A member of the RNA family "TPP riboswitch aptamer (THI element)" from Mesobacillus foraminis, 111 nucleotides long.

RNA sequence: AUUGACCACUAGGGGAGCCCUUGUUAAGGGCUGAGAGAAGAAGUAUUGACUUCUAAACCCUUAUAACCUGAACAGGUUCGUGCCUGCGUAGGGAAGUGACUAGUAAUUUUG
Numbered sequence: 001a002u003u004g005a006c007c008a009c010u011a012g013g014g015g016a017g018c019c020c021u022u023g024u025u026a027a028g029g030g031c032u033g034a035g036a037g038a039a040g041a042a043g044u045a046u047u048g049a050c051u052u053c054u055a056a057a058c059c060c061u062u063a064u065a066a067c068c069u070g071a072a073c074a075g076g077u078u079c080g081u082g083c084c085u086g087c088g089u090a091g092g093g094a095a096g097u098g099a100c101u102a103g104u105a106a107u108u109u110u111g
Stems, first nucleotide, its partner, number of pairs: 007098004011061004017031005038054001040052002067092004073086004
Gene Ontology term of the family: thiamine pyrophosphate binding. The source organism's lineage runs through Bacteria, Bacillota, Bacilli, Caryophanales and Mesobacillus. About the family: Vitamin B(1) in its active form thiamin pyrophosphate (TPP) is an essential coenzyme that is synthesised by coupling of pyrimidine and thiazole moieties in bacteria.